[Rfam]
RNA sequence: UUAAACAAGUAGAGGCACCCGCUUCUCACCUGAUUGACACAUCCGUUUGUAGUUGGCAGGUUACGAUGAUCUUUUAUGUAUACAAUCGUAGUGUGGGUGUCUAAGGCAUCCACACUUUUUUAUUUUC
Numbered sequence: 001u002u003a004a005a006c007a008a009g010u011a012g013a014g015g016c017a018c019c020c021g022c023u024u025c026u027c028a029c030c031u032g033a034u035u036g037a038c039a040c041a042u043c044c045g046u047u048u049g050u051a052g053u054u055g056g057c058a059g060g061u062u063a064c065g066a067u068g069a070u071c072u073u074u075u076a077u078g079u080a081u082a083c084a085a086u087c088g089u090a091g092u093g094u095g096g097g098u099g100u101c102u103a104a105g106g107c108a109u110c111c112a113c114a115c116u117u118u119u120u121u122a123u124u125u126u127c
Stems, first nucleotide, its partner, number of pairs: 011026006028061003036054003039050002092114010